The family of this 74-nucleotide RNA from Clostridium sp. CAG:226 is "Gut-1 RNA".
It scores 62 bits against the family's covariance model.
Rfam classes the family as a small RNA.

RNA sequence: CGGUGAAAUUGCGCUUACGCGCAGUGAAAUAUUGCUUGCGCAAUGUGAAAUAUGGCUCCGCCAUGUGAAAUCCG
Numbered sequence: 001c002g003g004u005g006a007a008a009u010u011g012c013g014c015u016u017a018c019g020c021g022c023a024g025u026g027a028a029a030u031a032u033u034g035c036u037u038g039c040g041c042a043a044u045g046u047g048a049a050a051u052a053u054g055g056c057u058c059c060g061c062c063a064u065g066u067g068a069a070a071u072c073c074g
Stems, first nucleotide, its partner, number of pairs: 008025007029046006050066007
Description:
The base pairs follow the family's consensus structure, which is taken from published work.